RNA sequence: UCGCGGCGCGUGUCAACCGGACGCGACGGCAUGAGGGACAGGAGAGGUUUUUCCGGUUUCCCGCCUGGCCAAGGAAUGGCGCCGACCUCUGCCCCGUCCGCGCC
Numbered sequence: 001u002c003g004c005g006g007c008g009c010g011u012g013u014c015a016a017c018c019g020g021a022c023g024c025g026a027c028g029g030c031a032u033g034a035g036g037g038a039c040a041g042g043a044g045a046g047g048u049u050u051u052u053c054c055g056g057u058u059u060c061c062c063g064c065c066u067g068g069c070c071a072a073g074g075a076a077u078g079g080c081g082c083c084g085a086c087c088u089c090u091g092c093c094c095c096g097u098c099c100g101c102g103c104c
Base pairs, nucleotide, nucleotide: 006103007102008101009100011023012022013021014020025098026097027096028094029093033089034088035087036086039067040066041065042064044062068080069079070078
RNA: Rhizobiales sRNA Atu_At1